[Rfam]
Nucleotides: 067
Stems, first nucleotide, its partner, number of pairs: 038055007
Number, partner (000 for none) and nucleotide at each position: 001000g002000u003000g004000u005000u006000u007000u008000u009000c010000a011000u012000g013000g014000u015000a016000u017000u018000a019000g020000a021000u022000u023000u024000a025000a026000g027000g028000u029000u030000a031000g032000a033000g034000g035000a036000u037000u038055a039054g040053u041052u042051g043050u044049c045000g046000g047000g048000a049044g050043a051042c052041a053040a054039u055038u056000a057000a058000u059000c060000u061000u062000u063000u064000u065000u066000u067000a
The family of this 67-nucleotide sequence from Muribaculaceae bacterium Isolate-114 is "Bacteroidetes FopS (family of paralogous sRNAs)". The family has 12 seed sequences and 822 matches in Rfam 15.1. The match comes from Rfam's covariance-model search (68 bits). Lineage of the source: Bacteria > Pseudomonadati > Bacteroidota > Bacteroidia > Muribaculaceae.